[Rfam]
About this RNA:
Group II catalytic intron D1-D4-3: a 172-nucleotide RNA sequence from Trinickia caryophylli. Rfam's curators write: Group II introns are found in rRNA, tRNA and mRNA of organelles in fungi, plants and protists, and also in mRNA in bacteria.

RNA sequence: AUGAGGGCGACCGGGUGCGGGGAGGGAGCGCGGAGCAUAAAUCGCGAGCCAAUGAACAAGAACCGCAUAGAAGGCGCUACCGAGCAGAGCGAGCGGGCAACAAACCGCGAAGCUCUCGUGACCGCGGUGAAGCGGCGCAAACGUGGCGGUUGUGCGGUGAAGGAAUGCGUCC
Dot-bracket structure: ((..((....))..))...........(.(((...(....((((((((((............((((.(.....(((.(.....((.((((..((((........))))...))))................))).)))..).)))).)))).))))))....)....))).)